[Rfam]
This 138-nucleotide sequence from Marmota marmota belongs to the Rfam family "U11 spliceosomal RNA".
For this family Rfam cites "Additional low-abundance human small nuclear ribonucleoproteins: U11, U12, etc" (Montzka and Steitz, Proc Natl Acad Sci U S A, 1988).
The organism belongs to Marmota marmota, within Eukaryota.
The family has 72 seed sequences and 2,595 matches in Rfam 15.1.
The family's consensus secondary structure is taken from published work.
RNA sequence: AAAAAGGGCUUCUGUCGUGAGUGGCACACGUAGGGCAACUCGAUUGCUCUUCGUGCGGAAUCGAAAUCUAGAAUGAUGUUGGCCUGAGGCAUAGCAUAGAUAGCCUUUAUGAUAUUGAGAUAUGUUCCUGUUAUCCCU
Numbered sequence: 001a002a003a004a005a006g007g008g009c010u011u012c013u014g015u016c017g018u019g020a021g022u023g024g025c026a027c028a029c030g031u032a033g034g035g036c037a038a039c040u041c042g043a044u045u046g047c048u049c050u051u052c053g054u055g056c057g058g059a060a061u062c063g064a065a066a067u068c069u070a071g072a073a074u075g076a077u078g079u080u081g082g083c084c085u086g087a088g089g090c091a092u093a094g095c096a097u098a099g100a101u102a103g104c105c106u107u108u109a110u111g112a113u114a115u116u117g118a119g120a121u122a123u124g125u126u127c128c129u130g131u132u133a134u135c136c137c138u
Stems, first nucleotide, its partner, number of pairs: 008090004012082001013026005027055004032050007056081003060077003109134006117127003